[Rfam]
RNA sequence: AAAUCCUAUAAAGCGCCAGGACUAAGCGAUGGAUACGUAAAGGAUCGUUUAGUUGACGAGGUGGAGGUUUAUCGAGUGUUCGGCGGAUGCCUCCCGGUUCGUAUGUGUCACCGGACCGAAAGUUUCUUUCUUAAAACGUUAAGGCAACUUAAUGUACAAAGGGAAGAAAAAAGUGACCU
Numbered sequence: 001a002a003a004u005c006c007u008a009u010a011a012a013g014c015g016c017c018a019g020g021a022c023u024a025a026g027c028g029a030u031g032g033a034u035a036c037g038u039a040a041a042g043g044a045u046c047g048u049u050u051a052g053u054u055g056a057c058g059a060g061g062u063g064g065a066g067g068u069u070u071a072u073c074g075a076g077u078g079u080u081c082g083g084c085g086g087a088u089g090c091c092u093c094c095c096g097g098u099u100c101g102u103a104u105g106u107g108u109c110a111c112c113g114g115a116c117c118g119a120a121a122g123u124u125u126c127u128u129u130c131u132u133a134a135a136a137c138g139u140u141a142a143g144g145c146a147a148c149u150u151a152a153u154g155u156a157c158a159a160a161g162g163g164a165a166g167a168a169a170a171a172a173g174u175g176a177c178c179u
Stems, first nucleotide, its partner, number of pairs: 020054008029045001063094005072083004095118006123169007137154007
Dot-bracket structure: ...................((((((((.(...............).))))))))........(((((....((((....))))......)))))((((((............))))))....(((((((.......(((((((....)))))))........)))))))..........
Rfam assigns this 179-nucleotide RNA from Rossellomorea vietnamensis to the family "glmS glucosamine-6-phosphate activated ribozyme aptamer". Lineage of the source: Bacteria > Bacillati > Caryophanales > Bacillaceae > Rossellomorea. Rfam links the family to the GO terms catalytic activity and regulation of gene expression. Rfam's curators write: This entry contains a glucosamine-6-phosphate activated ribozyme that is found in the mRNA for GlmS. GlmS is an enzyme that uses fructose-6-phosphate and glutamine to generate glucosamine-6-phosphate. The ribozyme catalyses self cleavage of the glmS mRNA that is thought to regulate GlmS activity.